The record is a 60-nucleotide RNA sequence from Paraburkholderia steynii, which matches "Betaproteobacteria toxic small RNA" in Rfam. Pairs were carried over by alignment from the consensus structure, which was predicted with WAR.
RNA sequence: UGUCUCCUCCAUGUCUCCUCUUGAUAUGGAUUCAGCCCACCACUUGGUGGGCUUUUCUUU
Dot-bracket structure: .......((((((((.......))))))))...((((((((....)))))))).......
Overexpression in amino aid rich medium attenuates growth, suggesting role in repressing amino acid intake and metabolism.